Description:
The record is a 105-nucleotide RNA from Vanilla planifolia, which matches "Small nucleolar RNA Z107/R87" in Rfam. A search with the family's covariance model found it, with a score of 79 bits. On this family, see Barneche et al., J Mol Biol 2001: "Identification of 66 box C/D snoRNAs in Arabidopsis thaliana: extensive gene duplications generated multiple isoforms predicting new ribosomal RNA 2'-O-methylation sites". Lineage of the source: Eukaryota > Spermatophyta > Magnoliopsida > Vanilloideae > Vanilla. Gene Ontology terms of the family: RNA processing and nucleolus.
RNA sequence: GAUCGCUAUGACGACUCCGAAAUUUCAAGCUCAACAGACCGGAUUGCAUGUCUCAUCUCUUUUGAAGAGAUCUGUAUGUCGACUAACCCGCUGAACUGAGCCAUC
Numbered sequence: 001g002a003u004c005g006c007u008a009u010g011a012c013g014a015c016u017c018c019g020a021a022a023u024u025u026c027a028a029g030c031u032c033a034a035c036a037g038a039c040c041g042g043a044u045u046g047c048a049u050g051u052c053u054c055a056u057c058u059c060u061u062u063u064g065a066a067g068a069g070a071u072c073u074g075u076a077u078g079u080c081g082a083c084u085a086a087c088c089c090g091c092u093g094a095a096c097u098g099a100g101c102c103a104u105c
Base pairs, nucleotide, nucleotide: 001105002104003103005101006100